[Rfam]
RNA sequence: UGAACGCAAAGUUCUGUAACACGUGGACUCUGAAUACUAUAGAAGUCAGUGCACUACAGAACUUUGUUAUCGGA
Numbered sequence: 001u002g003a004a005c006g007c008a009a010a011g012u013u014c015u016g017u018a019a020c021a022c023g024u025g026g027a028c029u030c031u032g033a034a035u036a037c038u039a040u041a042g043a044a045g046u047c048a049g050u051g052c053a054c055u056a057c058a059g060a061a062c063u064u065u066g067u068u069a070u071c072g073g074a
Base pairs, nucleotide, nucleotide: 004070006067007066008065009064010063011062012061013060014059015058016057020051021050022049026047027046028045029044
The family of this 74-nucleotide sequence from Albula goreensis is "mir-148/mir-152 microRNA precursor family". Its family is annotated with RISC complex and miRNA-mediated post-transcriptional gene silencing in the Gene Ontology. The organism belongs to Albula, within Eukaryota. The family has 70 seed sequences and 1,272 matches in Rfam 15.1. The family's consensus secondary structure was predicted with RNAalifold.